[Rfam]
RNA: UnaL2 LINE 3' element
Organism: Salmo trutta
RNA sequence: UCUAUUCACUACUGUAAGUCGCUCUGGAUAAGAGUGUCUGCUAAAAUGUAAAAA
Numbered sequence: 001u002c003u004a005u006u007c008a009c010u011a012c013u014g015u016a017a018g019u020c021g022c023u024c025u026g027g028a029u030a031a032g033a034g035u036g037u038c039u040g041c042u043a044a045a046a047u048g049u050a051a052a053a054a
Stems, first nucleotide, its partner, number of pairs: 013043001014041003020036006